[Rfam]
RNA sequence: GCAUUGCGAUGAAGCAAAAGGUUGCUGUUUACAGGGAAUUUUUGCUGAGAAUGUCCGGUUAAGAAUCGGGCGACUG
Numbered sequence: 001g002c003a004u005u006g007c008g009a010u011g012a013a014g015c016a017a018a019a020g021g022u023u024g025c026u027g028u029u030u031a032c033a034g035g036g037a038a039u040u041u042u043u044g045c046u047g048a049g050a051a052u053g054u055c056c057g058g059u060u061a062a063g064a065a066u067c068g069g070g071c072g073a074c075u076g
Stems, first nucleotide, its partner, number of pairs: 014045003018042004025034003053074003058071003
Dot-bracket structure: .............(((.((((...(((....)))....))))))).......(((..(((........))))))..
RNA: S10-Clostridia ribosomal protein leader